[Rfam]
RNA sequence: ACAAGGGAAGGAGGUGGUCCAAGGAAAUGAUUGAUUCCCGGACUCUUGAGGUGGUUGCGCGCUGACGUCGCGCACCGACCGGACGGCAGCUGCCGAUCGCGUGUCACCCCCGCGGGGGUGACGUCGGCGAAUCCCACGCAGUCACCGGAACCCGCGGGCGUCGUGCCCUCGUCCAGCACGACAGGUGGACCCCCACCGGCCCGCGGGUUCUUGCGU
Number, nucleotide and partner (000 for none) at each position: 001a000002c000003a000004a000005g000006g000007g000008a000009a000010g000011g000012a000013g000014g058015u057016g056017g055018u054019c000020c000021a000022a000023g000024g000025a000026a000027a000028u000029g000030a000031u000032u000033g000034a000035u000036u000037c000038c000039c000040g000041g000042a000043c000044u000045c000046u000047u000048g000049a000050g000051g000052u000053g000054g018055u017056u016057g015058c014059g000060c129061g128062c127063u126064g125065a124066c123067g000068u121069c120070g119071c118072g000073c116074a000075c114076c000077g000078a000079c000080c000081g000082g000083a000084c000085g000086g000087c000088a000089g000090c000091u000092g000093c000094c000095g000096a000097u000098c000099g000100c000101g000102u000103g000104u000105c000106a000107c000108c000109c000110c000111c000112g000113c000114g075115g000116g073117g000118g071119u070120g069121a068122c000123g066124u065125c064126g063127g062128c061129g060130a000131a000132u000133c000134c000135c000136a000137c000138g000139c000140a000141g000142u000143c000144a000145c000146c000147g000148g210149a209150a208151c207152c206153c205154g204155c203156g202157g201158g200159c199160g000161u181162c180163g179164u178165g177166c176167c000168c000169u000170c000171g000172u000173c000174c000175a000176g166177c165178a164179c163180g162181a161182c000183a000184g000185g000186u000187g000188g000189a000190c000191c000192c000193c000194c000195a000196c000197c000198g000199g159200c158201c157202c156203g155204c154205g153206g152207g151208u150209u149210c148211u000212u000213g000214c000215g000216u000
RNA: Actinobacteria sRNA Ms_IGR-5
Organism: Paraoerskovia marina